[Rfam]
RNA: Small nucleolar RNA SNORD70
RNA sequence: UUGCCUGUUGUCAAUGAUGGAUUCUUGUUGAACUGAAUAGAACUGAUUUGAGUCAACAUUUCGUCACUACCACUGAGACAACAGACAU
Numbered sequence: 001u002u003g004c005c006u007g008u009u010g011u012c013a014a015u016g017a018u019g020g021a022u023u024c025u026u027g028u029u030g031a032a033c034u035g036a037a038u039a040g041a042a043c044u045g046a047u048u049u050g051a052g053u054c055a056a057c058a059u060u061u062c063g064u065c066a067c068u069a070c071c072a073c074u075g076a077g078a079c080a081a082c083a084g085a086c087a088u
Base pairs, nucleotide, nucleotide: 002087003086005084006083007082008081009080010079011078012077